The family of this 88-nucleotide RNA from Phoenix dactylifera is "Small nucleolar RNA Z162". The family has 9 seed sequences and 146 matches in Rfam 15.1. Lineage of the source: Eukaryota > Streptophyta > Embryophyta > commelinids > Phoenix. A reference for the family is Chen et al. (2003), "The high diversity of snoRNAs in plants: identification and comparative study of 120 snoRNA genes from Oryza sativa", Nucleic Acids Res. Pairs were carried over by alignment from the consensus structure, which was predicted with PFOLD. It scores 47 bits against the family's covariance model.
RNA sequence: CUGGGCGCAAUGAGGAAGUUGUUUCAUUUUUGAGUGAGGUCAAAGUCCAAUGAGGAAACAUAUUAGUCCUUUUCAUUCUGAGUGCCCA
Numbered sequence: 001c002u003g004g005g006c007g008c009a010a011u012g013a014g015g016a017a018g019u020u021g022u023u024u025c026a027u028u029u030u031u032g033a034g035u036g037a038g039g040u041c042a043a044a045g046u047c048c049a050a051u052g053a054g055g056a057a058a059c060a061u062a063u064u065a066g067u068c069c070u071u072u073u074c075a076u077u078c079u080g081a082g083u084g085c086c087c088a
Base pairs, nucleotide, nucleotide: 004086005085006084007083008082010076011075012074013073014072039047041045